The family of this 81-nucleotide sequence from Thalassomonas actiniarum is "antisense RNA of dnaA mRNA".
Rfam links the family to the GO term regulation of mRNA stability.
A search with the family's covariance model found it, with a score of 54 bits.
[Rfam]
RNA sequence: UUUUGCCUUAGGUUUAUUGAUCAAAAUGCCGUUACCCACGGCAUGCAAUAAGUGGGUUUUACCCAAACCGGUAGCGCCGUA
Numbered sequence: 001u002u003u004u005g006c007c008u009u010a011g012g013u014u015u016a017u018u019g020a021u022c023a024a025a026a027u028g029c030c031g032u033u034a035c036c037c038a039c040g041g042c043a044u045g046c047a048a049u050a051a052g053u054g055g056g057u058u059u060u061a062c063c064c065a066a067a068c069c070g071g072u073a074g075c076g077c078c079g080u081a
Base pairs, nucleotide, nucleotide: 004043005042006041007040009038011036012035013034016032017031021028052077053076054075057073061072062071063070
Dot-bracket structure: ...((((.(.(((..((...(......)..)).))).).))))........(((..(...(((......)))).)))....